[Rfam]
RNA: Glycine riboswitch aptamer
Organism: Paraburkholderia sp. BL10I2N1
RNA sequence: CAAGGUAGCGCGGGAGAGAUCGUCAGAAGAUUCAUCUGACGGCGCCGACGGAGCAACCGCCCCGGAAACUCUCAGGCAAAAGGACCGCGUAGCCAGA
Numbered sequence: 001c002a003a004g005g006u007a008g009c010g011c012g013g014g015a016g017a018g019a020u021c022g023u024c025a026g027a028a029g030a031u032u033c034a035u036c037u038g039a040c041g042g043c044g045c046c047g048a049c050g051g052a053g054c055a056a057c058c059g060c061c062c063c064g065g066a067a068a069c070u071c072u073c074a075g076g077c078a079a080a081a082g083g084a085c086c087g088c089g090u091a092g093c094c095a096g097a
Stems, first nucleotide, its partner, number of pairs: 006092001008090006020042007044077003047073002051071003057065002